[Rfam]
RNA sequence: CGUGCCGGGGUGGGCAGGUCCUGCGGCCAACUAACCCUAAUGGCGGCUGCGCCCCUCACGCCCGCCCGCUGUUUUACUCGCUGACUUUCAGCGGGCAAAGGGAGCGGCCUAAGCAAAGGGGGGGUGGGGGGAAAGAGGUACGGCCUCAAAAAAAGCCAGCGAGGGGGAUCUACACCCCGGCCCACUCUGGGGUCCCUAUCUCUCCUCCGCAACCGGGGAUGCUCUCGCCGUCGCCCCUCGUGGAGGCCGCGGUCGGCAGGCUCAGCGCCACUACCGCCGCGAAGAGCUCGUCUCUGUCAGCCUCGGCGGCGGCUGGGACCGGAGGGCCGGCCCGCCCACCUUGGGCAGCCGGGGGACACCAACAGAACAAAACGGGCGCGGCGCCGCCGGGCGCUGAGCAGCCGCGGCUCCCUCAGACGUGGGGUGCGCGGCCGGCGCCGCCCCGACACCC
Numbered sequence: 001c002g003u004g005c006c007g008g009g010g011u012g013g014g015c016a017g018g019u020c021c022u023g024c025g026g027c028c029a030a031c032u033a034a035c036c037c038u039a040a041u042g043g044c045g046g047c048u049g050c051g052c053c054c055c056u057c058a059c060g061c062c063c064g065c066c067c068g069c070u071g072u073u074u075u076a077c078u079c080g081c082u083g084a085c086u087u088u089c090a091g092c093g094g095g096c097a098a099a100g101g102g103a104g105c106g107g108c109c110u111a112a113g114c115a116a117a118g119g120g121g122g123g124g125u126g127g128g129g130g131g132a133a134a135g136a137g138g139u140a141c142g143g144c145c146u147c148a149a150a151a152a153a154a155g156c157c158a159g160c161g162a163g164g165g166g167g168a169u170c171u172a173c174a175c176c177c178c179g180g181c182c183c184a185c186u187c188u189g190g191g192g193u194c195c196c197u198a199u200c201u202c203u204c205c206u207c208c209g210c211a212a213c214c215g216g217g218g219a220u221g222c223u224c225u226c227g228c229c230g231u232c233g234c235c236c237c238u239c240g241u242g243g244a245g246g247c248c249g250c251g252g253u254c255g256g257c258a259g260g261c262u263c264a265g266c267g268c269c270a271c272u273a274c275c276g277c278c279g280c281g282a283a284g285a286g287c288u289c290g291u292c293u294c295u296g297u298c299a300g301c302c303u304c305g306g307c308g309g310c311g312g313c314u315g316g317g318a319c320c321g322g323a324g325g326g327c328c329g330g331c332c333c334g335c336c337c338a339c340c341u342u343g344g345g346c347a348g349c350c351g352g353g354g355g356a357c358a359c360c361a362a363c364a365g366a367a368c369a370a371a372a373c374g375g376g377c378g379c380g381g382c383g384c385c386g387c388c389g390g391g392c393g394c395u396g397a398g399c400a401g402c403c404g405c406g407g408c409u410c411c412c413u414c415a416g417a418c419g420u421g422g423g424g425u426g427c428g429c430g431g432c433c434g435g436c437g438c439c440g441c442c443c444c445g446a447c448a449c450c451c
Stems, first nucleotide, its partner, number of pairs: 005190011017178002019167004051105002054102002064096008080160004085155001086153003203356007216333003220329001221327004227313004232308004248281005254276003259269003283295004374443004380439006402431005409424004